Description: The record is a 67-nucleotide RNA from Clostridium manihotivorum, which matches "RAGATH-18 RNA" in Rfam. It scores 62 bits against the family's covariance model. Pairs were carried over by alignment from the consensus structure, which is taken from published work. The family's RNA type in Rfam is small RNA.

[Rfam]
RNA sequence: CCUUUGGAGUGUCAGACCAUACGAAGAUAGUAUUAAAUAUACAAAAUCGGACACGGUGAAUAAGGAA
Numbered sequence: 001c002c003u004u005u006g007g008a009g010u011g012u013c014a015g016a017c018c019a020u021a022c023g024a025a026g027a028u029a030g031u032a033u034u035a036a037a038u039a040u041a042c043a044a045a046a047u048c049g050g051a052c053a054c055g056g057u058g059a060a061u062a063a064g065g066a067a
Stems, first nucleotide, its partner, number of pairs: 001065004009054005022049003030042003